[Rfam]
RNA: MIR2275 microRNA precursor family
Organism: Oryza punctata
RNA sequence: UCACUGAAAGUGAGAGUUGGAUGAAUACAAACUGACUGAUCAUAACAACUCCAGCAGAUCAUUCAUCAGCUUGUUUUCCUCCAAUAUCUCACCUUCAGAAG
Numbered sequence: 001u002c003a004c005u006g007a008a009a010g011u012g013a014g015a016g017u018u019g020g021a022u023g024a025a026u027a028c029a030a031a032c033u034g035a036c037u038g039a040u041c042a043u044a045a046c047a048a049c050u051c052c053a054g055c056a057g058a059u060c061a062u063u064c065a066u067c068a069g070c071u072u073g074u075u076u077u078c079c080u081c082c083a084a085u086a087u088c089u090c091a092c093c094u095u096c097a098g099a100a101g
Stems, first nucleotide, its partner, number of pairs: 004098005011091004016085006023078003027074004032069004